[Rfam]
This 103-nucleotide RNA sequence from Dasypus novemcinctus belongs to the Rfam family "Small nucleolar RNA SNORD124".
By type it is a C/D-box small nucleolar RNA.
The family has 18 seed sequences and 191 matches in Rfam 15.1.
The sequence is in the family's curated seed alignment.
RNA sequence: UGAUUCCAAGGAAGGGGUGAUGUUCCAGUUCAGUCCCAAGAAAAGGAUCCUGAGCCUUAGGGCUCUGAAGGAGCCACUUGGUCCUGACCUUCCUUUAUACAAA
Numbered sequence: 001u002g003a004u005u006c007c008a009a010g011g012a013a014g015g016g017g018u019g020a021u022g023u024u025c026c027a028g029u030u031c032a033g034u035c036c037c038a039a040g041a042a043a044a045g046g047a048u049c050c051u052g053a054g055c056c057u058u059a060g061g062g063c064u065c066u067g068a069a070g071g072a073g074c075c076a077c078u079u080g081g082u083c084c085u086g087a088c089c090u091u092c093c094u095u096u097a098u099a100c101a102a103a
Stems, first nucleotide, its partner, number of pairs: 009094007